[Rfam]
RNA: msiK RNA
RNA sequence: AGACCCCCUCCUUUACUCGGAUCGUCCGGCACGUUCCUGCCGGUGAAGGGAACAGAUC
Numbered sequence: 001a002g003a004c005c006c007c008c009u010c011c012u013u014u015a016c017u018c019g020g021a022u023c024g025u026c027c028g029g030c031a032c033g034u035u036c037c038u039g040c041c042g043g044u045g046a047a048g049g050g051a052a053c054a055g056a057u058c
Base pairs, nucleotide, nucleotide: 009050010049011048012047013046014045015044026043027042028041029040030039031038